Shown here is a 430-nucleotide part of an RNA from Solanum lycopersicum, a member of the family "Eukaryotic large subunit ribosomal RNA". Pairs were carried over by alignment from the consensus structure, which is taken from published work. Lineage of the source: Eukaryota > Embryophyta > eudicotyledons > asterids > Solanum subgen. Lycopersicon.
RNA sequence: GGUAAUAGCAAAUAUUCAAAUGAGAACUUUGAAGGCUGAAGAGAGGAAAUGUUCCAUGUGAACGACACUUGCACAUGGGUUAGUUGAUCCUAAGGGUCGAGGAAACCAUGACAGAUAGCGCAUUUUGCGCGUUCUUCAAAAGGGAAUCGGGUUAAAUCUCCUAAACCAGGACGUGGCAGUUGACGACAAUGUUAGGAAGUUUAGACACAUUAGCGGGAACCUCGGGAAGAUUUAUCUUUUCUUUUUAACAACCUGCCCGCACAAGAAUCGACUCAGCCGGAGGUAGGGUCCAACGGUUGCAAGAGCACCGCACAUCGCAUGGUUUCCGUUGCGCUCUCGGGUUCUUGAAAAUCCGAAGGACCUAAUGUCGUCCACGCCUGGUUGUACUCAUAACCACAUCAGGUCUCCAAGGUGAACAACCUAUGGUCGA
Dot-bracket structure: ..............((((((.......))))))((((.....(.((..(....((((((...((.....)).))))))......(((.((...(((((.(.(....).))))......(((.....)))......))....))...(.(((........))).)..((((.((((((....((((....))))......(((.((...((...(((((.(..((((((((.........))))))...(((((.....((.(.(...(((.......)))...).).)).....))))).......((((.........))))...))....).))))).)).........)).)))............).))))))))).)))...).....((......)).)).).((((.....))))..))))..